[Rfam]
RNA sequence: CGACGUUCACUCCGCGGCCCACAGAUCGUGAGUCCGGAGCGCAGUUCGUUUCAGGCCAUGGAACGGGGGCUUGAG
Numbered sequence: 001c002g003a004c005g006u007u008c009a010c011u012c013c014g015c016g017g018c019c020c021a022c023a024g025a026u027c028g029u030g031a032g033u034c035c036g037g038a039g040c041g042c043a044g045u046u047c048g049u050u051u052c053a054g055g056c057c058a059u060g061g062a063a064c065g066g067g068g069g070c071u072u073g074a075g
Base pairs, nucleotide, nucleotide: 004065005064006063007062008061010039011038012037013036014035050075051074052073053072054071055070056068057067
Shown here is a 75-nucleotide RNA sequence from Synechococcus sp. RS9916, a member of the family "Glutamine-II riboswitch aptamer".
It is one of the family's seed sequences.
On this family, see Huang et al., Nucleic Acids Res 2019: "Structure and ligand binding of the glutamine-II riboswitch".
Rfam links the family to the GO term glutamine binding.
Lineage of the source: Bacteria > Bacillati > Synechococcales > Synechococcaceae > Synechococcus.